[Rfam]
RNA sequence: UCUUUCGAUGAGAGAAUGUGCUUGGGGACAAUUGGAGCAGUUUGACUCCCUUACGGUUAGUAUGACGGUUUGAAAGUGAAAGAACUUUGGUAUGUUUCUAGAAAGUAAAUAAAUGAAUCCAAGUUUCGAGCACACUGUCUUUACACUAGUGUGGCAGCCCACCAAAUAACCAUUGUGAUUGUUCAUAAAGUGUUACCUUCAUAUUUUGCAAAACCUCUUAACCAAUCACGAGUGCAAAGUAGAGUUUGAACAUUUCAUUUAACAAUCACAGUGGUCAUCUGGUGGGCUGUAGAAUUUAUCACUAUGCCCACCAAAGUAAAGAUGGUGUGCUCAAAACUUGGAUUCGAUUACUUUUUCGUCAAAACAUACCAAAGCUCUCUCACUUUUCAAACUUCAAAAUAACAGUAGUAAGGGAAUCGAUCUGUACCAAUUGUACUCAAACACACUCUCUCAUCC
Numbered sequence: 001u002c003u004u005u006c007g008a009u010g011a012g013a014g015a016a017u018g019u020g021c022u023u024g025g026g027g028a029c030a031a032u033u034g035g036a037g038c039a040g041u042u043u044g045a046c047u048c049c050c051u052u053a054c055g056g057u058u059a060g061u062a063u064g065a066c067g068g069u070u071u072g073a074a075a076g077u078g079a080a081a082g083a084a085c086u087u088u089g090g091u092a093u094g095u096u097u098c099u100a101g102a103a104a105g106u107a108a109a110u111a112a113a114u115g116a117a118u119c120c121a122a123g124u125u126u127c128g129a130g131c132a133c134a135c136u137g138u139c140u141u142u143a144c145a146c147u148a149g150u151g152u153g154g155c156a157g158c159c160c161a162c163c164a165a166a167u168a169a170c171c172a173u174u175g176u177g178a179u180u181g182u183u184c185a186u187a188a189a190g191u192g193u194u195a196c197c198u199u200c201a202u203a204u205u206u207u208g209c210a211a212a213a214c215c216u217c218u219u220a221a222c223c224a225a226u227c228a229c230g231a232g233u234g235c236a237a238a239g240u241a242g243a244g245u246u247u248g249a250a251c252a253u254u255u256c257a258u259u260u261a262a263c264a265a266u267c268a269c270a271g272u273g274g275u276c277a278u279c280u281g282g283u284g285g286g287c288u289g290u291a292g293a294a295u296u297u298a299u300c301a302c303u304a305u306g307c308c309c310a311c312c313a314a315a316g317u318a319a320a321g322a323u324g325g326u327g328u329g330c331u332c333a334a335a336a337c338u339u340g341g342a343u344u345c346g347a348u349u350a351c352u353u354u355u356u357c358g359u360c361a362a363a364a365c366a367u368a369c370c371a372a373a374g375c376u377c378u379c380u381c382a383c384u385u386u387u388c389a390a391a392c393u394u395c396a397a398a399a400u401a402a403c404a405g406u407a408g409u410a411a412g413g414g415a416a417u418c419g420a421u422c423u424g425u426a427c428c429a430a431u432u433g434u435a436c437u438c439a440a441a442c443a444c445a446c447u448c449u450c451u452c453a454u455c456c
Stems, first nucleotide, its partner, number of pairs: 007455009017445004022440005028434008037425004042420004047415008056403004061398001063396003067392001069390002072387008081378003085374013098358001100356009114346013128332017149311003154290011166278002169275015188255007196248001198244003202241009215232003219228001